A member of the RNA family "Small nucleolar RNA SNORD77" from Sus scrofa, 71 nucleotides long. The literature on the family includes a 2004 paper in Curr Biol by Tycowski et al., "Guide RNAs with 5' caps and novel box C/D snoRNA-like domains for modification of snRNAs in metazoa".

RNA sequence: CUACUAUGAUGGCUGCGUAGCUCAACAGAAUGAACCAUGAAAGAGGUAUAUACCAUUUGUUGGAUGUAGAA
Numbered sequence: 001c002u003a004c005u006a007u008g009a010u011g012g013c014u015g016c017g018u019a020g021c022u023c024a025a026c027a028g029a030a031u032g033a034a035c036c037a038u039g040a041a042a043g044a045g046g047u048a049u050a051u052a053c054c055a056u057u058u059g060u061u062g063g064a065u066g067u068a069g070a071a
Stems, first nucleotide, its partner, number of pairs: 001069004006038003010034001013028003044058004

Pairs were carried over by alignment from the consensus structure, which was predicted with RNAalifold.